Description:
U2 spliceosomal RNA: a 184-nucleotide RNA from Amphibalanus amphitrite.
RNA sequence: AUCACCAUGUACUUUUCUGAAUAAAAAAAAUCUGUUCUUAUCAGCUUAAUAUCUGAUACGUCCCCUACAUGGGGACCAGAAUAUUAAACUGAUUUUUGGACUUUGGCGGGGUUUUUGGAGCUUGCUCCAGCCCUGCCGCGGGUUGGCCUGGCAUUGCACUACAGCCAGGAUCGGCCCACUUUUG
Number, nucleotide and partner (000 for none) at each position: 001a000002u020003c019004a018005c000006c000007a000008u000009g000010u000011a000012c000013u000014u000015u000016u000017c000018u004019g003020a002021a000022u000023a000024a000025a000026a000027a000028a000029a000030a000031u000032c000033u000034g000035u000036u000037c000038u000039u058040a057041u056042c055043a054044g053045c000046u000047u000048a000049a000050u000051a000052u000053c044054u043055g042056a041057u040058a039059c000060g076061u075062c074063c073064c072065c071066u000067a000068c000069a000070u000071g065072g064073g063074g062075a061076c060077c000078a000079g000080a000081a000082u000083a000084u000085u000086a000087a000088a000089c000090u000091g000092a000093u000094u000095u000096u000097u000098g000099g000100a000101c000102u000103u000104u000105g137106g136107c135108g134109g133110g132111g131112u130113u000114u000115u000116u000117g128118g127119a126120g125121c000122u000123u000124g000125c120126u119127c118128c117129a000130g112131c111132c110133c109134u108135g107136c106137c105138g000139c000140g177141g176142g175143u174144u173145g172146g000147c169148c168149u167150g166151g165152c164153a000154u000155u000156g000157c000158a000159c000160u000161a000162c000163a000164g152165c151166c150167a149168g148169g147170a000171u000172c145173g144174g143175c142176c141177c140178a000179c000180u000181u000182u000183u000184g000
The organism belongs to Amphibalanus, within Eukaryota. The base pairs follow the family's consensus structure, which is taken from published work. Its Rfam clan is "U2 clan". Gene Ontology terms of the family: U2 snRNP, pre-mRNA branch point binding and mRNA branch site recognition.